[Rfam]
RNA sequence: GGCCCAAAUUUGAAGUAGAGUAGAUUUGUAGGAUCAGUUGACCCUACUGAACCGCUCUACUUCGAGUUUGUGCCC
Numbered sequence: 001g002g003c004c005c006a007a008a009u010u011u012g013a014a015g016u017a018g019a020g021u022a023g024a025u026u027u028g029u030a031g032g033a034u035c036a037g038u039u040g041a042c043c044c045u046a047c048u049g050a051a052c053c054g055c056u057c058u059a060c061u062u063c064g065a066g067u068u069u070g071u072g073c074c075c
Base pairs, nucleotide, nucleotide: 001074002073003072005070006069007068008067009066011064012063013062014061015060016059017058018057019056020055021054023052025050026049028047029046030045032043034041035040

This 75-nucleotide RNA from Haemonchus contortus belongs to the Rfam family "mir-5928 microRNA precursor family".
The family has 5 seed sequences and 1,672 matches in Rfam 15.1.
The organism belongs to Haemonchus, within Eukaryota.
The sequence is in the family's curated seed alignment.